[Rfam]
RNA sequence: CCGCUGGGACGGCCCGGCCGCGACAGGGCUCCAGUGCCGGGACGACCCGG
Numbered sequence: 001c002c003g004c005u006g007g008g009a010c011g012g013c014c015c016g017g018c019c020g021c022g023a024c025a026g027g028g029c030u031c032c033a034g035u036g037c038c039g040g041g042a043c044g045a046c047c048c049g050g
Stems, first nucleotide, its partner, number of pairs: 001020001003018006037050005
Dot-bracket structure: (.((((((....)))))).)................(((((....)))))
RNA: Guanidine-II riboswitch aptamer (mini-ykkC)
Organism: Methylorubrum rhodinum